[Rfam]
RNA sequence: GCUCUUUAGUGUAAGACGUUAUUCGUCUAGUCGGGUGAUUAGCCAGACUCAAAUUUAUUGAACGGG
Numbered sequence: 001g002c003u004c005u006u007u008a009g010u011g012u013a014a015g016a017c018g019u020u021a022u023u024c025g026u027c028u029a030g031u032c033g034g035g036u037g038a039u040u041a042g043c044c045a046g047a048c049u050c051a052a053a054u055u056u057a058u059u060g061a062a063c064g065g066g
Base pairs, nucleotide, nucleotide: 003065004064005062006061007060008059009058029049030048031047032046034044035043036042